[Rfam]
RNA sequence: ACUGCCAUAACGGCCAUAGCAAAAGCACUCAUGUUGCAGCUUUGUCACAUUUUAACGAAUCUGCAAAUUCUGCU
Numbered sequence: 001a002c003u004g005c006c007a008u009a010a011c012g013g014c015c016a017u018a019g020c021a022a023a024a025g026c027a028c029u030c031a032u033g034u035u036g037c038a039g040c041u042u043u044g045u046c047a048c049a050u051u052u053u054a055a056c057g058a059a060u061c062u063g064c065a066a067a068u069u070c071u072g073c074u
Base pairs, nucleotide, nucleotide: 009042012041013040014039018074019073020072021071023069024068025037026036027035046063047062049060050059051058052057
Dot-bracket structure: ........[..[[[...((((.(((((.......))).]]]]...((.((((....)))).))....)).))))
Mammalian CPEB3 ribozyme: a 74-nucleotide sequence from Alligator mississippiensis. Lineage of the source: Eukaryota > Tetrapoda > Sauria > Alligatoridae > Alligator.